[Rfam]
RNA sequence: GGACUCGCUGGGGCUUGGUCCUCGCCACGUGGUCCUGACCUGCCCUCCGUGAGUGAGAGAAACAGAGAACUGGUUUGGGGGCGUCCUGUCCCAGUGGACACAGGAGACCACGGUUUCCAGUACCACA
Numbered sequence: 001g002g003a004c005u006c007g008c009u010g011g012g013g014c015u016u017g018g019u020c021c022u023c024g025c026c027a028c029g030u031g032g033u034c035c036u037g038a039c040c041u042g043c044c045c046u047c048c049g050u051g052a053g054u055g056a057g058a059g060a061a062a063c064a065g066a067g068a069a070c071u072g073g074u075u076u077g078g079g080g081g082c083g084u085c086c087u088g089u090c091c092c093a094g095u096g097g098a099c100a101c102a103g104g105a106g107a108c109c110a111c112g113g114u115u116u117c118c119a120g121u122a123c124c125a126c127a
Base pairs, nucleotide, nucleotide: 003054004053005052006051007050008049012044013043014042017040018039019038020037025032026031065123069121070120071119072118073117075113076112077111080109081108084105085104086103087102088099089098090097091096

The family of this 127-nucleotide RNA from Felis catus is "Small Cajal body specific RNA 23". Taxonomically the source falls in Felis (Eukaryota, Opisthokonta, Chordata, Vertebrata). Rfam's curators write: scaRNAs are a specific class of small nuclear RNAs which localise to the Cajal bodies and guide the modification of RNA polymerase II transcribed spliceosomal RNAs U1, U2, U4, U5 and U12. ACA11 belongs to the H/ACA box class of guide RNAs as it has the predicted hairpin-hinge-hairpin-tail structure,the conserved H/ACA-box motifs and is found associated with GAR1. H/ACA snRNAs are predicted to guide the modification of uridines to pseudouridines in substrate RNAs however, no target RNA has been identified for scaRNA ACA11. Rfam links the family to the GO terms Cajal body, RNA processing and nucleolus.